[Rfam]
RNA sequence: GCAAGAACUUGAGAUAUGGGCUGAACACUGAAUAGUGUCUUGACUGCAAGAUACAUUCGGACUUCUUCGUUAUUGCCACAAUUUGAACUUGAAAACAGCCUUUUUGAAUGUUGGGCGCCUCAUGAAAUUUUUUAGGCUUAUAUCUUAGCUUUCCAUC
Numbered sequence: 001g002c003a004a005g006a007a008c009u010u011g012a013g014a015u016a017u018g019g020g021c022u023g024a025a026c027a028c029u030g031a032a033u034a035g036u037g038u039c040u041u042g043a044c045u046g047c048a049a050g051a052u053a054c055a056u057u058c059g060g061a062c063u064u065c066u067u068c069g070u071u072a073u074u075g076c077c078a079c080a081a082u083u084u085g086a087a088c089u090u091g092a093a094a095a096c097a098g099c100c101u102u103u104u105u106g107a108a109u110g111u112u113g114g115g116c117g118c119c120u121c122a123u124g125a126a127a128u129u130u131u132u133u134a135g136g137c138u139u140a141u142a143u144c145u146u147a148g149c150u151u152u153c154c155a156u157c
Stems, first nucleotide, its partner, number of pairs: 005153003008148002011146010021135005027129001029127001035123003042118001045115001048112002051109002055104001059100002062098002073087002
Shown here is a 157-nucleotide RNA sequence from Populus tomentosa, a member of the family "MIR2912 microRNA precursor family".